[Rfam]
RNA sequence: GGAUAUCACUUUUUGCUAUCUCCGGCCAAUAACGCAAUGACACAUAAGUCAACUUUUUCAUGUGUCAUUGUGUUUUUGGCCGGAAAUAGCAAAACAGUGCUAUCU
Numbered sequence: 001g002g003a004u005a006u007c008a009c010u011u012u013u014u015g016c017u018a019u020c021u022c023c024g025g026c027c028a029a030u031a032a033c034g035c036a037a038u039g040a041c042a043c044a045u046a047a048g049u050c051a052a053c054u055u056u057u058u059c060a061u062g063u064g065u066c067a068u069u070g071u072g073u074u075u076u077u078g079g080c081c082g083g084a085a086a087u088a089g090c091a092a093a094a095c096a097g098u099g100c101u102a103u104c105u
Base pairs, nucleotide, nucleotide: 002104003103004102005101011094012093013092014091015090016089017088018087019086021084022083023082024081025080026079027078028077029076031074032073033072034071035070036069037068038067039066040065041064042063043062044061045060047058048057
This 105-nucleotide RNA from Prunus yedoensis belongs to the Rfam family "MIR6274 microRNA precursor family".
Lineage of the source: Eukaryota > Streptophytina > Magnoliopsida > rosids > Prunus yedoensis.
The base pairs follow the family's consensus structure, which was predicted with RNAalifold.
A search with the family's covariance model found it, with a score of 90 bits.